[Rfam]
RNA sequence: GCUGAUAAAGGCAAACCCGCCGAAAGGCGGGGACGCAAAGCCACGGGUCUAAGGCGUACGCUACGACGGCCGGGUUGCCAAAG
Numbered sequence: 001g002c003u004g005a006u007a008a009a010g011g012c013a014a015a016c017c018c019g020c021c022g023a024a025a026g027g028c029g030g031g032g033a034c035g036c037a038a039a040g041c042c043a044c045g046g047g048u049c050u051a052a053g054g055c056g057u058a059c060g061c062u063a064c065g066a067c068g069g070c071c072g073g074g075u076u077g078c079c080a081a082a083g
Stems, first nucleotide, its partner, number of pairs: 003080002011036002016031006034069001039076004044072003047067003
RNA: c-di-GMP-I-GGC riboswitch aptamer